This 82-nucleotide RNA sequence from Rhadina sibilatrix belongs to the Rfam family "mir-218 microRNA precursor family". The literature on the family includes a 2005 paper in Genes Dev by Chen et al., "The developmental miRNA profiles of zebrafish as determined by small RNA cloning". The match comes from Rfam's covariance-model search (92 bits).
RNA sequence: AGAUUUUCUGUUGUGCUUGAUCUAACCAUGUGGUAGAACACUAGAAAUGGAACAUGGUUCUGUCAAGCACCAUGGAACGUCA
Numbered sequence: 001a002g003a004u005u006u007u008c009u010g011u012u013g014u015g016c017u018u019g020a021u022c023u024a025a026c027c028a029u030g031u032g033g034u035a036g037a038a039c040a041c042u043a044g045a046a047a048u049g050g051a052a053c054a055u056g057g058u059u060c061u062g063u064c065a066a067g068c069a070c071c072a073u074g075g076a077a078c079g080u081c082a
Base pairs, nucleotide, nucleotide: 002081003080004079006077007076008075009074013070014069015068016067017066018065019064024059025058026057027056028055029054030053031052